[Rfam]
Nucleotides: 144
Stems, first nucleotide, its partner, number of pairs: 078102004085095003106131002115122002
Number, partner (000 for none) and nucleotide at each position: 001000a002000u003000c004000a005000a006000a007000g008000c009000c010000u011000u012000c013000a014000a015000u016000u017000c018000a019000a020000g021000u022000u023000a024000c025000a026000a027000a028000a029000u030000c031000a032000c033000u034000u035000c036000g037000a038000g039000a040000a041000a042000c043000c044000u045000c046000u047000c048000a049000a050000a051000a052000c053000u054000u055000u056000c057000c058000a059000a060000u061000u062000c063000a064000u065000c066000a067000a068000a069000a070000u071000g072000u073000c074000u075000c076000c077000c078102u079101g080100c081099u082000c083000u084000u085095g086094c087093a088000a089000c090000u091000g092000c093087u094086g095085c096000a097000g098000c099081g100080g101079u102078a103000a104000c105000u106131g107130c108000u109000c110000u111000a112000g113000c114000u115122g116121c117000u118000c119000c120000u121116g122115c123000u124000c125000u126000u127000c128000c129000u130107g131106c132000a133000g134000c135000g136000u137000a138000a139000g140000u141000a142000a143000c144000c

A member of the RNA family "A. fumigatus sRNA Afu_254" from Aspergillus pseudotamarii, 144 nucleotides long.
Pairs were carried over by alignment from the consensus structure, which was predicted with WAR.
For this family Rfam cites "Small ncRNA transcriptome analysis from Aspergillus fumigatus suggests a novel mechanism for regulation of protein synthesis" (Jochl et al., Nucleic Acids Res, 2008).
It is annotated as a small RNA.
The family has 6 seed sequences and 185 matches in Rfam 15.1.